[Rfam]
RNA sequence: GGCCUCAUAGCUCAGGGGACAGAGCACCACUCUCCUAAAGUGGGUGUCGGAGGUUCGAAUCCUCCUGGGGCCA
Number, nucleotide and partner (000 for none) at each position: 001g072002g071003c070004c069005u068006c067007a066008u000009a000010g025011c024012u023013c022014a000015g000016g000017g000018g000019a000020c000021a000022g013023a012024g011025c010026a000027c043028c042029a041030c040031u039032c000033u000034c000035c000036u000037a000038a000039a031040g030041u029042g028043g027044g000045u000046g000047u000048c000049g065050g064051a063052g062053g061054u000055u000056c000057g000058a000059a000060u000061c053062c052063u051064c050065c049066u007067g006068g005069g004070g003071c002072c001073a000

Shown here is a 73-nucleotide RNA from Streptomonospora alba, a member of the family "tRNA". The base pairs follow the family's consensus structure, which is taken from published work. The family is grouped with related families in Rfam's "tRNA clan". The source organism's lineage runs through Bacteria, Bacillati, Actinomycetota, Actinomycetes and Streptomonospora.